[Rfam]
RNA sequence: GAGUUACCGUCAUCGGCUUGGUUAAGGCCUUACGGGCCGAAGCCUCAGGGAAACCGAGUCUUAAUAGGGCGAAAUUGUCGACGGUGGUAGACGCGAACCCAGGUGAUCUACCCAUGAGCAGGUUGAAGCGCGGGUUGUACCGCGUGGAGGACCGAACCCACUUAGGUUGAAAACUGAGGGGAUGACUUGUGGGGAGGAGUGAAAGUCUAAUCAAACCUGGAGAUAGCUCGUU
Numbered sequence: 001g002a003g004u005u006a007c008c009g010u011c012a013u014c015g016g017c018u019u020g021g022u023u024a025a026g027g028c029c030u031u032a033c034g035g036g037c038c039g040a041a042g043c044c045u046c047a048g049g050g051a052a053a054c055c056g057a058g059u060c061u062u063a064a065u066a067g068g069g070c071g072a073a074a075u076u077g078u079c080g081a082c083g084g085u086g087g088u089a090g091a092c093g094c095g096a097a098c099c100c101a102g103g104u105g106a107u108c109u110a111c112c113c114a115u116g117a118g119c120a121g122g123u124u125g126a127a128g129c130g131c132g133g134g135u136u137g138u139a140c141c142g143c144g145u146g147g148a149g150g151a152c153c154g155a156a157c158c159c160a161c162u163u164a165g166g167u168u169g170a171a172a173a174c175u176g177a178g179g180g181g182a183u184g185a186c187u188u189g190u191g192g193g194g195a196g197g198a199g200u201g202a203a204a205g206u207c208u209a210a211u212c213a214a215a216c217c218u219g220g221a222g223a224u225a226g227c228u229c230g231u232u
Stems, first nucleotide, its partner, number of pairs: 005089007013081005020044004026038003048055002058070004092230002095227001099220006108196002111193008119184001121153004128145006157181003161178005198208002
Rfam assigns this 232-nucleotide part of an RNA from Pseudobythopirellula maris to the family "Bacterial large subunit ribosomal RNA". NCBI's taxonomy places the organism under Bacteria, Pseudomonadati, Planctomycetia, Pirellulales, Pseudobythopirellula. The match comes from Rfam's covariance-model search (2675 bits). The base pairs follow the family's consensus structure, which is taken from published work.